[Rfam]
RNA sequence: GCUUCCGAUGGAGGAGCGGUUCCCAUCAGUACCGGCGGCGAGGGCGAUGAACCCGAUGACCCGACGGGAAAGGGGCGGAUCGCCGAAGGGAACGCGGCUCAUCGACGCGCCCCCUGGACGACGAGGGGAAACCCCGCCGGCUGUCGUGCCGGUCACCCGGCGCGGAGGGCCUGAGGCGCA
Dot-bracket structure: .....(...((....((((((.((.......(((.(((......................))).)))......))..))))))...((((..((((.(.....).))))..))))((.((.((.((.....)).)).)).)).(((((((........)))))))....))...).....
The record is a 180-nucleotide sequence from Geothrix sp., which matches "Lysine riboswitch aptamer" in Rfam. It scores 61 bits against the family's covariance model. Its family is annotated with lysine biosynthetic process in the Gene Ontology. About the family: Riboswitches are metabolite binding domains within certain messenger RNAs that serve as precision sensors for their corresponding targets.